[Rfam]
A member of the RNA family "Eukaryotic large subunit ribosomal RNA" from Trichinella pseudospiralis, 578 nucleotides of a longer RNA.
RNA sequence: CGAUCCUAAGAAAACGGCGAAAGCUUGUUCGAAUUUACGACAUAAAAUGUAAAACUGUGUGUUGUGUAGUGUGCUUGUGUGUGUACUACUAUACUGAUAUAGCAGCAGUAGUGGUGGUGGUGGUGGUUUGUCAGUCAGCAGUGUAGUGUUUGUCUGUGGCAGUGCUGCUGCUGCUGCUGCUGCUGCUAUUGUUGUGCGGGUGCUUUUUACUUGCUGUUGUUGUGUGUUGUUGUACACACGCACACCCACAUAAUUCUGUGUGCAGUUGUCGUAUGUUUUCGAAAGGGAAUCCGGUUGAUAUUCCGGAACCGAGUAACGGAGACAAAGAGUAGCGCUUUAAUCUUCCGGUUGGCGUUCAACUCAAUCGCGCGGUAACGCAAGCGAACUCGGAAAAUGACCGUCGUGAGUUUCGAAAAGAGUUUUCUUUUCUUUUUAAGGGACGCAUUCCCUGGAACCGGGUUGUCCGGAGAUAGGGAUUCUGGUAUCCAUAAAACGCCGACUCUUUCACGGUGUUCGGAGCGCUCUCGUCGGUACGUGAAAAUCCGAGCGACGCCUGGUAAAUCUCGUACUUGGUCGUA
Numbered sequence: 001c002g003a004u005c006c007u008a009a010g011a012a013a014a015c016g017g018c019g020a021a022a023g024c025u026u027g028u029u030c031g032a033a034u035u036u037a038c039g040a041c042a043u044a045a046a047a048u049g050u051a052a053a054a055c056u057g058u059g060u061g062u063u064g065u066g067u068a069g070u071g072u073g074c075u076u077g078u079g080u081g082u083g084u085a086c087u088a089c090u091a092u093a094c095u096g097a098u099a100u101a102g103c104a105g106c107a108g109u110a111g112u113g114g115u116g117g118u119g120g121u122g123g124u125g126g127u128u129u130g131u132c133a134g135u136c137a138g139c140a141g142u143g144u145a146g147u148g149u150u151u152g153u154c155u156g157u158g159g160c161a162g163u164g165c166u167g168c169u170g171c172u173g174c175u176g177c178u179g180c181u182g183c184u185g186c187u188a189u190u191g192u193u194g195u196g197c198g199g200g201u202g203c204u205u206u207u208u209a210c211u212u213g214c215u216g217u218u219g220u221u222g223u224g225u226g227u228u229g230u231u232g233u234a235c236a237c238a239c240g241c242a243c244a245c246c247c248a249c250a251u252a253a254u255u256c257u258g259u260g261u262g263c264a265g266u267u268g269u270c271g272u273a274u275g276u277u278u279u280c281g282a283a284a285g286g287g288a289a290u291c292c293g294g295u296u297g298a299u300a301u302u303c304c305g306g307a308a309c310c311g312a313g314u315a316a317c318g319g320a321g322a323c324a325a326a327g328a329g330u331a332g333c334g335c336u337u338u339a340a341u342c343u344u345c346c347g348g349u350u351g352g353c354g355u356u357c358a359a360c361u362c363a364a365u366c367g368c369g370c371g372g373u374a375a376c377g378c379a380a381g382c383g384a385a386c387u388c389g390g391a392a393a394a395u396g397a398c399c400g401u402c403g404u405g406a407g408u409u410u411c412g413a414a415a416a417g418a419g420u421u422u423u424c425u426u427u428u429c430u431u432u433u434u435a436a437g438g439g440a441c442g443c444a445u446u447c448c449c450u451g452g453a454a455c456c457g458g459g460u461u462g463u464c465c466g467g468a469g470a471u472a473g474g475g476a477u478u479c480u481g482g483u484a485u486c487c488a489u490a491a492a493a494c495g496c497c498g499a500c501u502c503u504u505u506c507a508c509g510g511u512g513u514u515c516g517g518a519g520c521g522c523u524c525u526c527g528u529c530g531g532u533a534c535g536u537g538a539a540a541a542u543c544c545g546a547g548c549g550a551c552g553c554c555u556g557g558u559a560a561a562u563c564u565c566g567u568a569c570u571u572g573g574u575c576g577u578a
Base pairs, nucleotide, nucleotide: 001576002575003574005286006285010280011279012028014026016025017024018023036273037272038271039270040269041268042267290307291306292305293304294303310572311571312570313569357566359564361561369378370377371376386547387546388545389544390543391542397532398531399530400529402527403526405524406523407522408521410517411516412515413433414432415431416430417429418428437487438486439485440483441482446476447475448474449473450472451471455467456466457465458464494512495511496510497509498508
The match comes from Rfam's covariance-model search (2794 bits).